[Rfam]
The record is a 98-nucleotide sequence from Streptomyces sp. CC53, which matches "che1 RNA" in Rfam. The match comes from Rfam's covariance-model search (68 bits). The family's consensus secondary structure is taken from published work. The organism belongs to Streptomyces, within Bacteria.
RNA sequence: UGGACAGGGGGGUUCCCGCCCACCGGCAGGACCUGUCCGAACGGGCCGCGGGCGCCAGCGCCGAGCGGCCCCUGGUCGUCGCUCGGGGGUGGUCGCCG
Numbered sequence: 001u002g003g004a005c006a007g008g009g010g011g012g013u014u015c016c017c018g019c020c021c022a023c024c025g026g027c028a029g030g031a032c033c034u035g036u037c038c039g040a041a042c043g044g045g046c047c048g049c050g051g052g053c054g055c056c057a058g059c060g061c062c063g064a065g066c067g068g069c070c071c072c073u074g075g076u077c078g079u080c081g082c083u084c085g086g087g088g089g090u091g092g093u094c095g096c097c098g
Base pairs, nucleotide, nucleotide: 001039002038003037004036005035006034007033008032014031015030016029018027019026020025044070045069046068047067048066049065
Dot-bracket structure: ((((((((.....(((.(((....))).)))))))))))....((((((...............))))))............................